[Rfam]
Rfam assigns this 175-nucleotide RNA from Arthrobacter sp. NamB2 to the family "c-di-AMP riboswitch aptamer (ydaO/yuaA leader)". Taxonomically the source falls in Arthrobacter (Bacteria, Actinomycetes, Micrococcales, Micrococcaceae). Its family is annotated with cyclic-di-AMP binding and regulation of gene expression in the Gene Ontology. Rfam's curators write: This family represents a conserved RNA structure found upstream of the ydaO and yuaA genes in Bacillus subtilis and related genes in other bacteria. Pairs were carried over by alignment from the consensus structure.
RNA sequence: UCGUUCGCAAUCACGAAGGCGGGGACGGGGGAACCACAGUUCCAUCGGGCGCGCAGGUUCACCUGCCGACGUCCUUGGGGUUAAGCCGCAGCACCAUCGCCCACGAGGCGGGGGCGCGGCCGGGUGACUCCCAUCCGAACCCGACAGCUCACCCCGUAGGCAUGGGAGAGGUAUA
Numbered sequence: 001u002c003g004u005u006c007g008c009a010a011u012c013a014c015g016a017a018g019g020c021g022g023g024g025a026c027g028g029g030g031g032a033a034c035c036a037c038a039g040u041u042c043c044a045u046c047g048g049g050c051g052c053g054c055a056g057g058u059u060c061a062c063c064u065g066c067c068g069a070c071g072u073c074c075u076u077g078g079g080g081u082u083a084a085g086c087c088g089c090a091g092c093a094c095c096a097u098c099g100c101c102c103a104c105g106a107g108g109c110g111g112g113g114g115c116g117c118g119g120c121c122g123g124g125u126g127a128c129u130c131c132c133a134u135c136c137g138a139a140c141c142c143g144a145c146a147g148c149u150c151a152c153c154c155c156g157u158a159g160g161c162a163u164g165g166g167a168g169a170g171g172u173a174u175a
Stems, first nucleotide, its partner, number of pairs: 001023002025157006035077002078142003086119004122136004